[Rfam]
RNA sequence: UCAUUUCUAUAUUUGAAGCAAUGAAAAUAACAAAUCAACAUACUUGGUGGUGGAAUAAUUUACGUAAUCAGUCGUGAGCUAGACCACUUUGUAUGUACCUAAUAUAAAAACCUGUC
Numbered sequence: 001u002c003a004u005u006u007c008u009a010u011a012u013u014u015g016a017a018g019c020a021a022u023g024a025a026a027a028u029a030a031c032a033a034a035u036c037a038a039c040a041u042a043c044u045u046g047g048u049g050g051u052g053g054a055a056u057a058a059u060u061u062a063c064g065u066a067a068u069c070a071g072u073c074g075u076g077a078g079c080u081a082g083a084c085c086a087c088u089u090u091g092u093a094u095g096u097a098c099c100u101a102a103u104a105u106a107a108a109a110a111c112c113u114g115u116c
Stems, first nucleotide, its partner, number of pairs: 038096001040094004046088002049085003056081002059078003062072002